[Rfam]
RNA sequence: UGGCCUGAAAUGAUGUUAAGAAUUCAUGUCUCUUCUCUGAGAUAUGUCAUGGAGACAGCUGGAUGUAUUUCUGAUCAGGCCA
Numbered sequence: 001u002g003g004c005c006u007g008a009a010a011u012g013a014u015g016u017u018a019a020g021a022a023u024u025c026a027u028g029u030c031u032c033u034u035c036u037c038u039g040a041g042a043u044a045u046g047u048c049a050u051g052g053a054g055a056c057a058g059c060u061g062g063a064u065g066u067a068u069u070u071c072u073g074a075u076c077a078g079g080c081c082a
Stems, first nucleotide, its partner, number of pairs: 001082005
Shown here is an 82-nucleotide sequence from Geococcyx californianus, a member of the family "Small nucleolar RNA SNORD111". A reference for the family is Galardi et al. (2002), "Purified box C/D snoRNPs are able to reproduce site-specific 2'-O-methylation of target RNA in vitro", Mol Cell Biol. It scores 59 bits against the family's covariance model. Its family is annotated with RNA processing and nucleolus in the Gene Ontology. It is annotated as a C/D-box small nucleolar RNA. Rfam 15.1 lists 894 matches to the family in 541 species.